The record is a 193-nucleotide sequence from Ewingella americana, which matches "Manganese Mn2+ riboswitch aptamer (yybP-ykoY)" in Rfam.
Gene Ontology term of the family: manganese ion binding.
It scores 55 bits against the family's covariance model.
This RNA was originally discovered in E. coli during a large scale screen and was named SraF. The family was later found to exist upstream of related families of protein genes in many bacteria, including the the yybP and ykoK genes in B. subtilis. The specific functions of these proteins are unknown, but this structured RNA element may be involved in their genetic regulation as a riboswitch.
Rfam 15.1 lists 1,126 matches to the family in 1,062 species.
[Rfam]
RNA sequence: UGCGCCGUCAUUUGGGGAGUAGCCGGUUUUUGCAUCAAUUGUCUCGCACAAUGGAUGUGAAAACGCUCGUAUCAACAUACUCGUUUUGAAAUAAAACGUGGUGCGAGCAGCCGUGAGGUUGGCGAGACCAUAGACGCGUAGCUCCGUCGUAAGGUUGGGGGUGGGUUACGUGUAUAUGGAAACACCCGGCCGA
Numbered sequence: 001u002g003c004g005c006c007g008u009c010a011u012u013u014g015g016g017g018a019g020u021a022g023c024c025g026g027u028u029u030u031u032g033c034a035u036c037a038a039u040u041g042u043c044u045c046g047c048a049c050a051a052u053g054g055a056u057g058u059g060a061a062a063a064c065g066c067u068c069g070u071a072u073c074a075a076c077a078u079a080c081u082c083g084u085u086u087u088g089a090a091a092u093a094a095a096a097c098g099u100g101g102u103g104c105g106a107g108c109a110g111c112c113g114u115g116a117g118g119u120u121g122g123c124g125a126g127a128c129c130a131u132a133g134a135c136g137c138g139u140a141g142c143u144c145c146g147u148c149g150u151a152a153g154g155u156u157g158g159g160g161g162u163g164g165g166u167u168a169c170g171u172g173u174a175u176a177u178g179g180a181a182a183c184a185c186c187c188g189g190c191c192g193a
Stems, first nucleotide, its partner, number of pairs: 027063010065108010082098005